[Rfam]
RNA sequence: AUAAAUAAUAAAGCGCCAGAACUUAAAUUAUAAAAGUCCACAUUGGAUUUAUAGACAAGCUUUUGUUUAAUUGUUUAAGUUGACGAGGAUAGGGAGUAUCGAAAUUUUCGGCGGAUGCCCUGCGGUAAAACACUACCGUUAAACAUUGAGAAACCCAAGAAGUGAUUUUUGGUACAGACUCAAUGCGGUGUUAAAA
Numbered sequence: 001a002u003a004a005a006u007a008a009u010a011a012a013g014c015g016c017c018a019g020a021a022c023u024u025a026a027a028u029u030a031u032a033a034a035a036g037u038c039c040a041c042a043u044u045g046g047a048u049u050u051a052u053a054g055a056c057a058a059g060c061u062u063u064u065g066u067u068u069a070a071u072u073g074u075u076u077a078a079g080u081u082g083a084c085g086a087g088g089a090u091a092g093g094g095a096g097u098a099u100c101g102a103a104a105u106u107u108u109c110g111g112c113g114g115a116u117g118c119c120c121u122g123c124g125g126u127a128a129a130a131c132a133c134u135a136c137c138g139u140u141a142a143a144c145a146u147u148g149a150g151a152a153a154c155c156c157a158a159g160a161a162g163u164g165a166u167u168u169u170u171g172g173u174a175c176a177g178a179c180u181c182a183a184u185g186c187g188g189u190g191u192u193a194a195a196a
Base pairs, nucleotide, nucleotide: 020081021080022079023078024077025076026075027074090122091121092120093119094118099111100110101109102108123138124137125136126135127134144185145184146183147182148181155172156171157170158169159168160167161166
Dot-bracket structure: ...................((((((((..............................................))))))))........(((((....((((.....))))......)))))(((((......))))).....(((((......(((((((....)))))))........)))))...........
Shown here is a 196-nucleotide sequence from Clostridium frigidicarnis, a member of the family "glmS glucosamine-6-phosphate activated ribozyme aptamer". It scores 109 bits against the family's covariance model. NCBI's taxonomy places the organism under Bacteria, Clostridia, Eubacteriales, Clostridiaceae, Clostridium. This entry contains a glucosamine-6-phosphate activated ribozyme that is found in the mRNA for GlmS. GlmS is an enzyme that uses fructose-6-phosphate and glutamine to generate glucosamine-6-phosphate. The ribozyme catalyses self cleavage of the glmS mRNA that is thought to regulate GlmS activity.